[Rfam]
RNA sequence: AUGAGAGAGAGGGAGCUCCCUUCAGUCCAAGUAUGGAAUGGAAGAGAGAGAAUAGUCUCCCGCAUCAUUCGCUCAUUCACACAGUAGCAAUCUCAGAUCCUUGUGCUGCUGUGUGGAGUAAGAGAAUUGUGCGCGCUUCCUUUCUACUGGGUGUUUGAGCGAAUGAGUCGGCAGCUGAUUCAAACCCUACAACCAUCCAUGAGUGGACUGAAGGAAGCUCUCUCAAACACAGUU
Numbered sequence: 001a002u003g004a005g006a007g008a009g010a011g012g013g014a015g016c017u018c019c020c021u022u023c024a025g026u027c028c029a030a031g032u033a034u035g036g037a038a039u040g041g042a043a044g045a046g047a048g049a050g051a052a053u054a055g056u057c058u059c060c061c062g063c064a065u066c067a068u069u070c071g072c073u074c075a076u077u078c079a080c081a082c083a084g085u086a087g088c089a090a091u092c093u094c095a096g097a098u099c100c101u102u103g104u105g106c107u108g109c110u111g112u113g114u115g116g117a118g119u120a121a122g123a124g125a126a127u128u129g130u131g132c133g134c135g136c137u138u139c140c141u142u143u144c145u146a147c148u149g150g151g152u153g154u155u156u157g158a159g160c161g162a163a164u165g166a167g168u169c170g171g172c173a174g175c176u177g178a179u180u181c182a183a184a185c186c187c188u189a190c191a192a193c194c195a196u197c198c199a200u201g202a203g204u205g206g207a208c209u210g211a212a213g214g215a216a217g218c219u220c221u222c223u224c225a226a227a228c229a230c231a232g233u234u
Stems, first nucleotide, its partner, number of pairs: 013220005019214002023210007036197001057174002060171003066165004074157001
Dot-bracket structure: ............(((((.((..(((((((......(....................((.(((...((((....(..................................................................................)....))))...))).))......................)......)))))))..)).)))))..............

Rfam assigns this 234-nucleotide sequence from Ensete ventricosum to the family "MIR159 microRNA precursor family". Its family is annotated with miRNA-mediated post-transcriptional gene silencing and RISC complex in the Gene Ontology. The source organism's lineage runs through Eukaryota, Streptophyta, Spermatophyta, Magnoliopsida and Ensete. The base pairs follow the family's consensus structure, which was predicted with WAR. On this family, see Jones-Rhoades and Bartel, Mol Cell 2004: "Computational identification of plant microRNAs and their targets, including a stress-induced miRNA".